[Rfam]
RNA sequence: GUCGGCUACGGGGACAUGAGGCCGGUGACGGUCGGGGGUAAAAUUGUGGGCUCUCUGUGCGCCAUCGCCGGCGUGCUCACUAUCGCGCUGCCGGUGCCGGUCAUCGUAUCAAAC
Numbered sequence: 001g002u003c004g005g006c007u008a009c010g011g012g013g014a015c016a017u018g019a020g021g022c023c024g025g026u027g028a029c030g031g032u033c034g035g036g037g038g039u040a041a042a043a044u045u046g047u048g049g050g051c052u053c054u055c056u057g058u059g060c061g062c063c064a065u066c067g068c069c070g071g072c073g074u075g076c077u078c079a080c081u082a083u084c085g086c087g088c089u090g091c092c093g094g095u096g097c098c099g100g101u102c103a104u105c106g107u108a109u110c111a112a113a114c
Base pairs, nucleotide, nucleotide: 001114002113005110007108008107009106010105011104013102014101015100018097021095022094037077038076039075040074049063050062051061
RNA: Potassium channel RNA editing signal